[Rfam]
RNA: small nucleolar RNA snoR135
Organism: Oryza meyeriana
RNA sequence: UGCGCAGGACUAGUGUAAAUGGAGCUGCACUUGCAAUUCGUUGUACGUGCUGCUUAAACUUGUUUCCUGCUAAAGCAGUUUACUGAAAAAUGGGCAGUUGAGUUCGGCCAAUUUAUCUUAUGGUUUCCUCAACAAUCAUUUUUCCCACAUGA
Numbered sequence: 001u002g003c004g005c006a007g008g009a010c011u012a013g014u015g016u017a018a019a020u021g022g023a024g025c026u027g028c029a030c031u032u033g034c035a036a037u038u039c040g041u042u043g044u045a046c047g048u049g050c051u052g053c054u055u056a057a058a059c060u061u062g063u064u065u066c067c068u069g070c071u072a073a074a075g076c077a078g079u080u081u082a083c084u085g086a087a088a089a090a091u092g093g094g095c096a097g098u099u100g101a102g103u104u105c106g107g108c109c110a111a112u113u114u115a116u117c118u119u120a121u122g123g124u125u126u127c128c129u130c131a132a133c134a135a136u137c138a139u140u141u142u143u144c145c146c147a148c149a150u151g152a
Base pairs, nucleotide, nucleotide: 004070005069006068007067008066009065015046016045017044019042085144086143087142088141089140090139091138092137093136097133098132099131100130101129102128